[Rfam]
RNA sequence: AUUUGAUACUGUGGGCAUCUAGUGCACAACUUAUUGAAUCUCUCCCAAUAGUCAUAUAGGGAUUUUUCAGGAUACUACUCAAUACUGCAUAUCUCUUUUCUCAGACU
Numbered sequence: 001a002u003u004u005g006a007u008a009c010u011g012u013g014g015g016c017a018u019c020u021a022g023u024g025c026a027c028a029a030c031u032u033a034u035u036g037a038a039u040c041u042c043u044c045c046c047a048a049u050a051g052u053c054a055u056a057u058a059g060g061g062a063u064u065u066u067u068c069a070g071g072a073u074a075c076u077a078c079u080c081a082a083u084a085c086u087g088c089a090u091a092u093c094u095c096u097u098u099u100c101u102c103a104g105a106c107u
Stems, first nucleotide, its partner, number of pairs: 001107001003105002005102002057074002
About this RNA
Plant small nucleolar RNA R71: a 107-nucleotide RNA sequence from Coffea arabica. On this family, see Brown et al., Trends Plant Sci 2003: "Plant snoRNAs: functional evolution and new modes of gene expression". The base pairs follow the family's consensus structure, which was predicted with PFOLD. Taxonomically the source falls in Coffea (Eukaryota, Magnoliopsida, eudicotyledons, asterids).